[Rfam]
RNA sequence: GCGCUCGAAAGGCAAGUCUCCUGAAAGGGAGUACACGCAAAGCUUCAGAUCUAAGGGGAAACCUAUGAUAGCUGGGCUGCCGUA
Numbered sequence: 001g002c003g004c005u006c007g008a009a010a011g012g013c014a015a016g017u018c019u020c021c022u023g024a025a026a027g028g029g030a031g032u033a034c035a036c037g038c039a040a041a042g043c044u045u046c047a048g049a050u051c052u053a054a055g056g057g058g059a060a061a062c063c064u065a066u067g068a069u070a071g072c073u074g075g076g077c078u079g080c081c082g083u084a
Stems, first nucleotide, its partner, number of pairs: 012038002017033001018031005041078004046074003049069003056063002

A member of the RNA family "c-di-GMP-I riboswitch aptamer" from Rheinheimera mesophila, 84 nucleotides long. The base pairs follow the family's consensus structure, which is taken from published work. The organism belongs to Rheinheimera, within Bacteria.